RNA: t44 RNA
Organism: Providencia alcalifaciens
RNA sequence: CUCAAUUGUGUAAUAACACACACGAAUCGGCACAUGCGCCGGGGUGCUCUUAUGCGUUUAGACGCAGCUUUAGAGUCGGUAGCAUGGGAUUCGUGGAGGCAUAAC
Numbered sequence: 001c002u003c004a005a006u007u008g009u010g011u012a013a014u015a016a017c018a019c020a021c022a023c024g025a026a027u028c029g030g031c032a033c034a035u036g037c038g039c040c041g042g043g044g045u046g047c048u049c050u051u052a053u054g055c056g057u058u059u060a061g062a063c064g065c066a067g068c069u070u071u072a073g074a075g076u077c078g079g080u081a082g083c084a085u086g087g088g089a090u091u092c093g094u095g096g097a098g099g100c101a102u103a104a105c
Base pairs, nucleotide, nucleotide: 021095022094023093024092025091026090027089028088033086034085035084036083037082038080039079040078041077046076047075048074049073050072